[Rfam]
RNA sequence: UCGGUUCCUGCUUCAACAGUGCUUGAACGGAACCGG
Numbered sequence: 001u002c003g004g005u006u007c008c009u010g011c012u013u014c015a016a017c018a019g020u021g022c023u024u025g026a027a028c029g030g031a032a033c034c035g036g
Stems, first nucleotide, its partner, number of pairs: 001036008010028001012027005017021001